[Rfam]
A member of the RNA family "MIR7504 microRNA precursor family" from Gossypium anomalum, 123 nucleotides long. Taxonomically the source falls in Gossypium (Eukaryota, Viridiplantae, Euphyllophyta, malvids).
RNA sequence: AAUAAGAAAAAUGAUAAAUCAGAUUUUUCUUCCUAAUUUUGAGCUUUUUUCUCAUGAAAAAUUUAAAUCCAACUAAAAAUGCUAAAAAUUAGGAGGAGAAAUCUUAUUUGUCCUUCUUCUAUC
Numbered sequence: 001a002a003u004a005a006g007a008a009a010a011a012u013g014a015u016a017a018a019u020c021a022g023a024u025u026u027u028u029c030u031u032c033c034u035a036a037u038u039u040u041g042a043g044c045u046u047u048u049u050u051c052u053c054a055u056g057a058a059a060a061a062u063u064u065a066a067a068u069c070c071a072a073c074u075a076a077a078a079a080u081g082c083u084a085a086a087a088a089u090u091a092g093g094a095g096g097a098g099a100a101a102u103c104u105u106a107u108u109u110g111u112c113c114u115u116c117u118u119c120u121a122u123c
Stems, first nucleotide, its partner, number of pairs: 002122003006119003010115002013112007021104008030095011042083002046079004

Annotation
The match comes from Rfam's covariance-model search (87 bits).